[Rfam]
Rfam assigns this 344-nucleotide sequence from Tsuneonella suprasediminis to the family "Alphaproteobacteria transfer-messenger RNA". The family is grouped with related families in Rfam's "tRNA clan". The family's RNA type in Rfam is non-coding RNA gene. A search with the family's covariance model found it, with a score of 233 bits. NCBI's taxonomy places the organism under Bacteria, Pseudomonadati, Alphaproteobacteria, Sphingomonadales, Tsuneonella.
RNA sequence: UCACUUCACAUUAAGCCCGCAUUCCCUAUAUCGGGACUGCCGGUUUUUGCUGGCUAUGGCGAUAAAUUGCGGUGUGCAAUAGGCACAGCGGACCCGGGGGCAGUACCCGGCGGCUCCACCACCGCUCCCCACAGGGGGCACGAUGACGGGGCCGAACUAGGAUCGACGUGUGUUGAAAAGCAUCGUUUUCGCUCGGGCUGAGUAACCCGUUCAAGGCUCAAAACUUAUAAGUGCCAACGACAACGAAGCACUUGCUCUCGCUGCGUAACCUGACGGCCUAACGGCCUGAUCUUACAAAGCUUUGAGCACGGUUCGGACCGAACCGGGUAACAGAAUCGGAAACC
Numbered sequence: 001u002c003a004c005u006u007c008a009c010a011u012u013a014a015g016c017c018c019g020c021a022u023u024c025c026c027u028a029u030a031u032c033g034g035g036a037c038u039g040c041c042g043g044u045u046u047u048u049g050c051u052g053g054c055u056a057u058g059g060c061g062a063u064a065a066a067u068u069g070c071g072g073u074g075u076g077c078a079a080u081a082g083g084c085a086c087a088g089c090g091g092a093c094c095c096g097g098g099g100g101c102a103g104u105a106c107c108c109g110g111c112g113g114c115u116c117c118a119c120c121a122c123c124g125c126u127c128c129c130c131a132c133a134g135g136g137g138g139c140a141c142g143a144u145g146a147c148g149g150g151g152c153c154g155a156a157c158u159a160g161g162a163u164c165g166a167c168g169u170g171u172g173u174u175g176a177a178a179a180g181c182a183u184c185g186u187u188u189u190c191g192c193u194c195g196g197g198c199u200g201a202g203u204a205a206c207c208c209g210u211u212c213a214a215g216g217c218u219c220a221a222a223a224c225u226u227a228u229a230a231g232u233g234c235c236a237a238c239g240a241c242a243a244c245g246a247a248g249c250a251c252u253u254g255c256u257c258u259c260g261c262u263g264c265g266u267a268a269c270c271u272g273a274c275g276g277c278c279u280a281a282c283g284g285c286c287u288g289a290u291c292u293u294a295c296a297a298a299g300c301u302u303u304g305a306g307c308a309c310g311g312u313u314c315g316g317a318c319c320g321a322a323c324c325g326g327g328u329a330a331c332a333g334a335a336u337c338g339g340a341a342a343c344c
Stems, first nucleotide, its partner, number of pairs: 039054005058193005069186007084172003088169003094110005111154007194209004199220003309325004318338001320336001